[Rfam]
RNA sequence: CUGUGGUGCAUUGUAGUUGCAUUGCAUGUCACACUAACGCAGUGCAAUGGAUCUGCUUUGCAUCACAG
Numbered sequence: 001c002u003g004u005g006g007u008g009c010a011u012u013g014u015a016g017u018u019g020c021a022u023u024g025c026a027u028g029u030c031a032c033a034c035u036a037a038c039g040c041a042g043u044g045c046a047a048u049g050g051a052u053c054u055g056c057u058u059u060g061c062a063u064c065a066c067a068g
Base pairs, nucleotide, nucleotide: 001068002067003066004065006064007062008061009060010059013056014055015054016053021048022047023046024045025044026043027042
About this RNA: Shown here is a 68-nucleotide sequence from Stegastes partitus, a member of the family "mir-33 microRNA precursor family". Rfam links the family to the GO terms RISC complex and gene silencing by miRNA.